[Rfam]
RNA sequence: AAAGUGGCGUAUGCAACUGCUAUGGAUUGGUUUAUCGCGGUGUGCUAUGCCUUC
Numbered sequence: 001a002a003a004g005u006g007g008c009g010u011a012u013g014c015a016a017c018u019g020c021u022a023u024g025g026a027u028u029g030g031u032u033u034a035u036c037g038c039g040g041u042g043u044g045c046u047a048u049g050c051c052u053u054c
Base pairs, nucleotide, nucleotide: 002053003052006051007050008049010047011046013045014044016041017040018039019038020037022035023034024033025032026031
RNA: Editing element of GABA-3 exon 9